RNA sequence: AACUUUACACAGUAGCAGUCUUGUAGCCUAUGAGGUUUAUCCAAGAUGUGAUUAUUGCUAAUUGAAAACUUUUUAAAGCCCCUCCAGGAUGAAUUUGCAAUAUAGUCAGCCUUGGUUGUUUCUGACAAUCUCUGCAGAAA
Numbered sequence: 001a002a003c004u005u006u007a008c009a010c011a012g013u014a015g016c017a018g019u020c021u022u023g024u025a026g027c028c029u030a031u032g033a034g035g036u037u038u039a040u041c042c043a044a045g046a047u048g049u050g051a052u053u054a055u056u057g058c059u060a061a062u063u064g065a066a067a068a069c070u071u072u073u074u075a076a077a078g079c080c081c082c083u084c085c086a087g088g089a090u091g092a093a094u095u096u097g098c099a100a101u102a103u104a105g106u107c108a109g110c111c112u113u114g115g116u117u118g119u120u121u122c123u124g125a126c127a128a129u130c131u132c133u134g135c136a137g138a139a140a
Stems, first nucleotide, its partner, number of pairs: 021051004026047001028045001034042002084115002086112003090108003094104001129140001131138002
This 140-nucleotide sequence from Otolemur garnettii belongs to the Rfam family "U4 spliceosomal RNA".
About the family: U4 small nuclear RNA (U4 snRNA) is a component of the major U2-dependent spliceosome.